[Rfam]
RNA sequence: CCUGACGUCGAGCCAGACGUGCAAUGCCUGAUACAACGUUUUGUUCGUUCGGCUCGCGUUACGC
Numbered sequence: 001c002c003u004g005a006c007g008u009c010g011a012g013c014c015a016g017a018c019g020u021g022c023a024a025u026g027c028c029u030g031a032u033a034c035a036a037c038g039u040u041u042u043g044u045u046c047g048u049u050c051g052g053c054u055c056g057c058g059u060u061a062c063g064c
Stems, first nucleotide, its partner, number of pairs: 001063001003061001005059003009056006018047002021044004026039002
The family of this 64-nucleotide RNA sequence from Eleutherodactylus coqui is "mir-375 microRNA precursor family". The base pairs follow the family's consensus structure, which was predicted with RNAalifold. Rfam links the family to the GO terms miRNA-mediated post-transcriptional gene silencing and RISC complex. The organism belongs to Eleutherodactylus, within Eukaryota. Rfam 15.1 lists 824 matches to the family in 730 species.